[Rfam]
RNA: PyrR binding site
RNA sequence: UAAUCCUUUAAUGAUAGUCCCGUGAGGCUAAGAAGGUUGUGAAUAGUAAUUACGAUGCAUGCGUGCAAAGUUAGUUACUAAUUGGUUUCGUCUAUAUCCAGACGAAAGAAUACGAGCAUGUUCACUCCUGCCUUACAUUAGGCAGGAGUUUUUUUAU
Number, nucleotide and partner (000 for none) at each position: 001u000002a000003a038004u000005c036006c035007u034008u033009u032010a000011a000012u000013g000014a000015u030016a029017g028018u027019c026020c000021c000022g000023u000024g000025a000026g019027g018028c017029u016030a015031a000032g009033a008034a007035g006036g005037u000038u003039g000040u000041g000042a000043a000044u000045a079046g078047u077048a076049a075050u074051u073052a072053c070054g000055a000056u000057g000058c000059a000060u000061g000062c000063g000064u000065g000066c000067a000068a000069a000070g053071u000072u052073a051074g050075u049076u048077a047078c046079u045080a000081a000082u000083u000084g000085g000086u000087u000088u000089c000090g000091u000092c000093u000094a000095u000096a000097u000098c000099c000100a000101g000102a000103c000104g000105a000106a000107a000108g000109a000110a000111u000112a000113c000114g000115a000116g000117c000118a000119u000120g000121u000122u000123c000124a149125c148126u147127c146128c145129u144130g143131c142132c141133u140134u000135a000136c000137a000138u000139u000140a133141g132142g131143c130144a129145g128146g127147a126148g125149u124150u000151u000152u000153u000154u000155u000156a000157u000